The record is a 128-nucleotide RNA, which matches "Small nucleolar RNA SNORA31" in Rfam.
Rfam links the family to the GO terms nucleolus and RNA processing.
The literature on the family includes a 2001 paper in EMBO J by Huttenhofer et al., "RNomics: an experimental approach that identifies 201 candidates for novel, small, non-messenger RNAs in mouse".
The family's RNA type in Rfam is H/ACA-box small nucleolar RNA.

RNA sequence: UUGCAUGCAUUGACAGCCCUUGACCAGUUUGUGGUUGUUCUUCUGGUCUGUACUAGGAUGCAAAAGAAAAGCUCCCUGAGUGUUCUGCCUGCCUCUGUGGCGUUUAGAUUGAAUUGGGAUAUACAUCU
Numbered sequence: 001u002u003g004c005a006u007g008c009a010u011u012g013a014c015a016g017c018c019c020u021u022g023a024c025c026a027g028u029u030u031g032u033g034g035u036u037g038u039u040c041u042u043c044u045g046g047u048c049u050g051u052a053c054u055a056g057g058a059u060g061c062a063a064a065a066g067a068a069a070a071g072c073u074c075c076c077u078g079a080g081u082g083u084u085c086u087g088c089c090u091g092c093c094u095c096u097g098u099g100g101c102g103u104u105u106a107g108a109u110u111g112a113a114u115u116g117g118g119a120u121a122u123a124c125a126u127c128u
Base pairs, nucleotide, nucleotide: 002062003061004060005059006058008056011052012051014050015049016048018046019045022040023039025037026036027035028034075118076117077116078115081111084108085107086106087105089102091101092100093099